[Rfam]
RNA sequence: UUAUAGUGAAUGCACACUUAUUUAAAAGUAAGGACGCAAAGCUAUAGGGACUAAAGAUCUUUCGGGAUCUAUGCCUGUAACUUAGAAGA
Number, nucleotide and partner (000 for none) at each position: 001u000002u000003a000004u000005a000006g000007u000008g000009a000010a000011u000012g037013c036014a000015c000016a000017c032018u031019u030020a029021u028022u027023u000024a000025a000026a000027a022028g021029u020030a019031a018032g017033g000034a000035c000036g013037c012038a000039a000040a083041g082042c000043u080044a000045u000046a000047g000048g078049g075050a000051c073052u000053a000054a000055a000056g069057a068058u067059c066060u000061u000062u000063c000064g000065g000066g059067a058068u057069c056070u000071a000072u000073g051074c000075c049076u000077g000078u048079a000080a043081c000082u041083u040084a000085g000086a000087a000088g000089a000
RNA: c-di-GMP-I riboswitch aptamer